Notes
The family of this 150-nucleotide RNA from Derxia gummosa is "FMN riboswitch aptamer (RFN element)". The source organism's lineage runs through Bacteria, Betaproteobacteria, Alcaligenaceae, Derxia and Derxia gummosa. The match comes from Rfam's covariance-model search (96 bits). Its family is annotated with FMN binding in the Gene Ontology.
RNA sequence: CAUGGUCUUCAGGGCGGGGCGGAAUUCCCCACCGGCGGUAGGUCGCCCCGCGCGACGAGCCCGCGAGCGCCCGUGCCGCCCGGCAUGGGGUCAGCAGACCCGGUCGAAUGCCGGGGCCGACGGUCACAGUCCGGAUGAAAGAAGACGCUU
Numbered sequence: 001c002a003u004g005g006u007c008u009u010c011a012g013g014g015c016g017g018g019g020c021g022g023a024a025u026u027c028c029c030c031a032c033c034g035g036c037g038g039u040a041g042g043u044c045g046c047c048c049c050g051c052g053c054g055a056c057g058a059g060c061c062c063g064c065g066a067g068c069g070c071c072c073g074u075g076c077c078g079c080c081c082g083g084c085a086u087g088g089g090g091u092c093a094g095c096a097g098a099c100c101c102g103g104u105c106g107a108a109u110g111c112c113g114g115g116g117c118c119g120a121c122g123g124u125c126a127c128a129g130u131c132c133g134g135a136u137g138a139a140a141g142a143a144g145a146c147g148c149u150u
Stems, first nucleotide, its partner, number of pairs: 005146006017029003031130002033119002035064004059117002067095002099115005121133003